[Rfam]
RNA: Plastid-rpl20 3UTR RNA
Organism: Musa balbisiana
RNA sequence: ACAUAAUUCCCCGGAGAAGGAACUCCGGAAAAUAGAUAAAAAUAAAUUAGAUAUUAAUAGUAAUGAACGAAUGUUUCAAU
Numbered sequence: 001a002c003a004u005a006a007u008u009c010c011c012c013g014g015a016g017a018a019g020g021a022a023c024u025c026c027g028g029a030a031a032a033u034a035g036a037u038a039a040a041a042a043u044a045a046a047u048u049a050g051a052u053a054u055u056a057a058u059a060g061u062a063a064u065g066a067a068c069g070a071a072u073g074u075u076u077c078a079a080u
Stems, first nucleotide, its partner, number of pairs: 007030002011028006065076004